[Rfam]
RNA: MIR828 microRNA precursor family
Organism: Papaver nudicaule
RNA sequence: UUAAUGUUUCUUGCUCAAAUGAGUAUUCCAACUGCAAGAUUCACCUAGUACUUUCUCUGUGAUUGGUGCUGUUGCGAUGCUCAUUUGAGUAAGUAAUGUUAA
Numbered sequence: 001u002u003a004a005u006g007u008u009u010c011u012u013g014c015u016c017a018a019a020u021g022a023g024u025a026u027u028c029c030a031a032c033u034g035c036a037a038g039a040u041u042c043a044c045c046u047a048g049u050a051c052u053u054u055c056u057c058u059g060u061g062a063u064u065g066g067u068g069c070u071g072u073u074g075c076g077a078u079g080c081u082c083a084u085u086u087g088a089g090u091a092a093g094u095a096a097u098g099u100u101a102a
Base pairs, nucleotide, nucleotide: 004099005098006097007096008095010093011092012091013090014089015088016087017086018085019084020083021082022081023080024079025078026077027076029074030073